Overview: This 155-nucleotide RNA sequence from Populus tomentosa belongs to the Rfam family "MIR2912 microRNA precursor family". Gene Ontology terms of the family: miRNA-mediated post-transcriptional gene silencing and RISC complex. The base pairs follow the family's consensus structure, which was predicted with RNAalifold. The match comes from Rfam's covariance-model search (103 bits).

RNA sequence: UCUAGAACUCGAGAUAUAGGUUGAACACUGAACAGUGUCUGGGCUAUAAGACAGAUUCAGACUUCUUUGUUGUUUCUAUAAUUUGGACUUGAAAAUGGCCUUUCUAAAUCUUGGGCUCCUAUAAAAGUUGUAGGCCUAUGUCUUACCUUUUCAUC
Numbered sequence: 001u002c003u004a005g006a007a008c009u010c011g012a013g014a015u016a017u018a019g020g021u022u023g024a025a026c027a028c029u030g031a032a033c034a035g036u037g038u039c040u041g042g043g044c045u046a047u048a049a050g051a052c053a054g055a056u057u058c059a060g061a062c063u064u065c066u067u068u069g070u071u072g073u074u075u076c077u078a079u080a081a082u083u084u085g086g087a088c089u090u091g092a093a094a095a096u097g098g099c100c101u102u103u104c105u106a107a108a109u110c111u112u113g114g115g116c117u118c119c120u121a122u123a124a125a126a127g128u129u130g131u132a133g134g135c136c137u138a139u140g141u142c143u144u145a146c147c148u149u150u151u152c153a154u155c
Stems, first nucleotide, its partner, number of pairs: 003153001005151003009145001011144010021133003025129001027128003035122002041119003045115001048112004054105001060099001062098002068092001072088003